[Rfam]
RNA sequence: GGCUGGUCUGAAGGUAGGGAAUUAUCUGAAUUGAUUGUUCACAGUUAGUUACAGAUUGAAUUCCCUGUUCCACUCUUUCCCCUUUCUCACCACUGCUCUUGACCAGUCAAAA
Numbered sequence: 001g002g003c004u005g006g007u008c009u010g011a012a013g014g015u016a017g018g019g020a021a022u023u024a025u026c027u028g029a030a031u032u033g034a035u036u037g038u039u040c041a042c043a044g045u046u047a048g049u050u051a052c053a054g055a056u057u058g059a060a061u062u063c064c065c066u067g068u069u070c071c072a073c074u075c076u077u078u079c080c081c082c083u084u085u086c087u088c089a090c091c092a093c094u095g096c097u098c099u100u101g102a103c104c105a106g107u108c109a110a111a112a
Stems, first nucleotide, its partner, number of pairs: 001108008010100002014096002017090001019088002043074003048070001
RNA: Y RNA